RNA: Rhizobiales sRNA Atu_At1
RNA sequence: ACCCCGGACAUGUCAAUCGGGCGCAACGGCACGGAAAACAUGGCGAUUUUCCCGAUUUCCCGCCAUGGCCAACGCAUUGGCAGACGCGUUCCUGUCCCGUUUGUCCG
Numbered sequence: 001a002c003c004c005c006g007g008a009c010a011u012g013u014c015a016a017u018c019g020g021g022c023g024c025a026a027c028g029g030c031a032c033g034g035a036a037a038a039c040a041u042g043g044c045g046a047u048u049u050u051c052c053c054g055a056u057u058u059c060c061c062g063c064c065a066u067g068g069c070c071a072a073c074g075c076a077u078u079g080g081c082a083g084a085c086g087c088g089u090u091c092c093u094g095u096c097c098c099g100u101u102u103g104u105c106c107g
Stems, first nucleotide, its partner, number of pairs: 006106004011023004025101003028097002033092004039067007068081003